The family of this 72-nucleotide sequence from Coptis chinensis is "Plastid-ycf2 5UTR RNA". Plastid ycf2 is a non-coding RNA (ncRNA) recognised in plastids.

RNA sequence: AUGCAUCCAGCAGGAAUUGAACCUCUGAUUUGCCAAUUAUGAGUUAGGCUUUAACCAUUCAGCCAUGGAUGC
Numbered sequence: 001a002u003g004c005a006u007c008c009a010g011c012a013g014g015a016a017u018u019g020a021a022c023c024u025c026u027g028a029u030u031u032g033c034c035a036a037u038u039a040u041g042a043g044u045u046a047g048g049c050u051u052u053a054a055c056c057a058u059u060c061a062g063c064c065a066u067g068g069a070u071g072c
Base pairs, nucleotide, nucleotide: 003072004071005070006069007068008067010026012024013023014022039066040065041064043063044062045061047059048056